[Rfam]
Notes:
A member of the RNA family "Yersinia sRNA 155(RyfD)" from Duffyella gerundensis, 133 nucleotides long. The sRNA was identified by and is confirmed to have a stable secondary structure by using genome-wide structure probing at different temperatures. The function is unknown. The match comes from Rfam's covariance-model search (88 bits).
RNA sequence: CAAGACGAUCCGGUAGCGUAUUUUUUAUACCAGAUACAGGUCAUAAACCUUGAAAACUUGAGGUAAGACCUCAUUUAAUCUCCAGUAGCAUUAUGACCUUAAUGGGAGGAAUUAUGCGUCUGGAUCGUCUUAC
Numbered sequence: 001c002a003a004g005a006c007g008a009u010c011c012g013g014u015a016g017c018g019u020a021u022u023u024u025u026u027a028u029a030c031c032a033g034a035u036a037c038a039g040g041u042c043a044u045a046a047a048c049c050u051u052g053a054a055a056a057c058u059u060g061a062g063g064u065a066a067g068a069c070c071u072c073a074u075u076u077a078a079u080c081u082c083c084a085g086u087a088g089c090a091u092u093a094u095g096a097c098c099u100u101a102a103u104g105g106g107a108g109g110a111a112u113u114a115u116g117c118g119u120c121u122g123g124a125u126c127g128u129c130u131u132a133c
Base pairs, nucleotide, nucleotide: 002131003130004129005128006127007126008125009124010123011122012121016119017118018117019116020115022111023039024038026036027035028034048063049062050061051060052059053058065074067072079109080108081107082106083105085103086102